Rfam assigns this 122-nucleotide RNA sequence from Gossypium barbadense to the family "MIR7504 microRNA precursor family".
RNA sequence: AAUAGGAGCACGACAAAUCAGAAUUUUUCUCCUGAUUUUUAGAUUUUUCCUCAUAAAAAAUUUAAAUUCAACUAAAAAUACUAAAAAUCAAGAAAAAAAAUCUAAUUUAUCAUGCUCCUAUU
Numbered sequence: 001a002a003u004a005g006g007a008g009c010a011c012g013a014c015a016a017a018u019c020a021g022a023a024u025u026u027u028u029c030u031c032c033u034g035a036u037u038u039u040u041a042g043a044u045u046u047u048u049c050c051u052c053a054u055a056a057a058a059a060a061u062u063u064a065a066a067u068u069c070a071a072c073u074a075a076a077a078a079u080a081c082u083a084a085a086a087a088u089c090a091a092g093a094a095a096a097a098a099a100a101u102c103u104a105a106u107u108u109a110u111c112a113u114g115c116u117c118c119u120a121u122u
Stems, first nucleotide, its partner, number of pairs: 001122010012111002015108004020103003024099004030093002033090007041082002045078004